Description
The family of this 221-nucleotide sequence from Streptomyces sp. MMG1533 is "Streptomyces RNA 1601". The literature on the family includes a 2011 paper in RNA Biol by Vockenhuber et al., "Deep sequencing-based identification of small non-coding RNAs in Streptomyces coelicolor".

RNA sequence: GACGACCGGCCGGACACACGUGUGUAAGUGUGACUGGCCCACAAGUGGAGGCUCCGAUCUCCCACCUGACCGUCCUUCGGGGCGGCGGGUCACCCCGGUCAGGCGGCCACCAUCGUUCCGUACGGACGAUGGAGUCGCCCGAAUGUGCGCCCCGCGGCAUCACCGCGGCGGUGCUCCGGUAGUGCCAGGAGCCCCGCCUGUGAUCGUCCGGGGCAUUUUUU
Numbered sequence: 001g002a003c004g005a006c007c008g009g010c011c012g013g014a015c016a017c018a019c020g021u022g023u024g025u026a027a028g029u030g031u032g033a034c035u036g037g038c039c040c041a042c043a044a045g046u047g048g049a050g051g052c053u054c055c056g057a058u059c060u061c062c063c064a065c066c067u068g069a070c071c072g073u074c075c076u077u078c079g080g081g082g083c084g085g086c087g088g089g090u091c092a093c094c095c096c097g098g099u100c101a102g103g104c105g106g107c108c109a110c111c112a113u114c115g116u117u118c119c120g121u122a123c124g125g126a127c128g129a130u131g132g133a134g135u136c137g138c139c140c141g142a143a144u145g146u147g148c149g150c151c152c153c154g155c156g157g158c159a160u161c162a163c164c165g166c167g168g169c170g171g172u173g174c175u176c177c178g179g180u181a182g183u184g185c186c187a188g189g190a191g192c193c194c195c196g197c198c199u200g201u202g203a204u205c206g207u208c209c210g211g212g213g214c215a216u217u218u219u220u221u
Stems, first nucleotide, its partner, number of pairs: 004100006012035002036091005042068002045065004049060002070085006102139003106136001110132008149214006155206003164202003167198005173192005
Dot-bracket structure: ...((((((..((....................))(((((.((.((((((........)).)))).)).((((((....)))))).)))))...)))))).(((.(...((((((((.......))))))))...)))).........(((((((((......((((((((.(((((..........))))).))))).))).)))..)))))).......